Shown here is a 153-nucleotide RNA from Gossypium schwendimanii, a member of the family "U12 minor spliceosomal RNA". The organism belongs to Gossypium, within Eukaryota. Rfam classes the family as a spliceosomal small nuclear RNA.
RNA sequence: UUGCCUUAAACUAAUAAGGAAAACAAAGCGAGCGGUGGGAGCUGCUUGCCGCGCCCAGCUUUUGGUGCACACGAAUUGUGGAGGUGCAAAAGGCUGGCCGAGUGCUGACGCUGCGCUUACUUUGCGCAGAACUCGUUCGAGCGGGCCUACCAA
Numbered sequence: 001u002u003g004c005c006u007u008a009a010a011c012u013a014a015u016a017a018g019g020a021a022a023a024c025a026a027a028g029c030g031a032g033c034g035g036u037g038g039g040a041g042c043u044g045c046u047u048g049c050c051g052c053g054c055c056c057a058g059c060u061u062u063u064g065g066u067g068c069a070c071a072c073g074a075a076u077u078g079u080g081g082a083g084g085u086g087c088a089a090a091a092g093g094c095u096g097g098c099c100g101a102g103u104g105c106u107g108a109c110g111c112u113g114c115g116c117u118u119a120c121u122u123u124g125c126g127c128a129g130a131a132c133u134c135g136u137u138c139g140a141g142c143g144g145g146c147c148u149a150c151c152a153a
Stems, first nucleotide, its partner, number of pairs: 004019005028049008051068005085152002091148005097142001100137002102134001104132001106130001112128005